[Rfam]
RNA sequence: CUGCAUUCACUGACCUUGAAAAAUUUGCUAUUGCUCUUUGGUUUGCAAUAGGAUGUGAAAGAAAAAUCUCUGCACUUUCUGCCUUUGUGGCACCCUGGAAUGAACUGGAGAAUACAUUU
Numbered sequence: 001c002u003g004c005a006u007u008c009a010c011u012g013a014c015c016u017u018g019a020a021a022a023a024u025u026u027g028c029u030a031u032u033g034c035u036c037u038u039u040g041g042u043u044u045g046c047a048a049u050a051g052g053a054u055g056u057g058a059a060a061g062a063a064a065a066a067u068c069u070c071u072g073c074a075c076u077u078u079c080u081g082c083c084u085u086u087g088u089g090g091c092a093c094c095c096u097g098g099a100a101u102g103a104a105c106u107g108g109a110g111a112a113u114a115c116a117u118u119u
Base pairs, nucleotide, nucleotide: 002057003056004055005054006053007052008051011047012046013042014041015040018036019035022032023031024030067111068110069109070108071107072106075102078099079098080092081091082090083089

Shown here is a 119-nucleotide RNA sequence from Oryctolagus cuniculus, a member of the family "Small nucleolar RNA SNORA31".
A reference for the family is Huttenhofer et al. (2001), "RNomics: an experimental approach that identifies 201 candidates for novel, small, non-messenger RNAs in mouse", EMBO J.
Pairs were carried over by alignment from the consensus structure, which was predicted with RNAalifold.
Rfam links the family to the GO terms RNA processing and nucleolus.